[Rfam]
RNA sequence: GGGGCUAGUUGCAAUGCUGGUGCUUGCCUGAGUCUUCAAAACUUUUUGAGAGGCGCGUGUCGUCUCUGGUCGGUUCGAUUCCGAUCUAGUCCC
Numbered sequence: 001g002g003g004g005c006u007a008g009u010u011g012c013a014a015u016g017c018u019g020g021u022g023c024u025u026g027c028c029u030g031a032g033u034c035u036u037c038a039a040a041a042c043u044u045u046u047u048g049a050g051a052g053g054c055g056c057g058u059g060u061c062g063u064c065u066c067u068g069g070u071c072g073g074u075u076c077g078a079u080u081c082c083g084a085u086c087u088a089g090u091c092c093c
Stems, first nucleotide, its partner, number of pairs: 001093008011027004016023002030044004049067005070084004
RNA: Selenocysteine transfer RNA
Organism: Pullulanibacillus pueri